[Rfam]
RNA: Small nucleolar RNA SNORA63
RNA sequence: GUGCAGGAUAAGUUACAAUACAGCUUGUGUGGUACUGUAUUGUCGUUCCCCCUGCAAACAAUAACAUGUUUCCUCGCUAUCCCUGUCUGUCAACUUCUCUUGACUGCCAGGGACGUAAGGUUUCAGACAC
Numbered sequence: 001g002u003g004c005a006g007g008a009u010a011a012g013u014u015a016c017a018a019u020a021c022a023g024c025u026u027g028u029g030u031g032g033u034a035c036u037g038u039a040u041u042g043u044c045g046u047u048c049c050c051c052c053u054g055c056a057a058a059c060a061a062u063a064a065c066a067u068g069u070u071u072c073c074u075c076g077c078u079a080u081c082c083c084u085g086u087c088u089g090u091c092a093a094c095u096u097c098u099c100u101u102g103a104c105u106g107c108c109a110g111g112g113a114c115g116u117a118a119g120g121u122u123u124c125a126g127a128c129a130c
Base pairs, nucleotide, nucleotide: 003055004054005053006052007051015043016042017041018040019039020038021037022036023035025034082111083110084109085108087106089104090103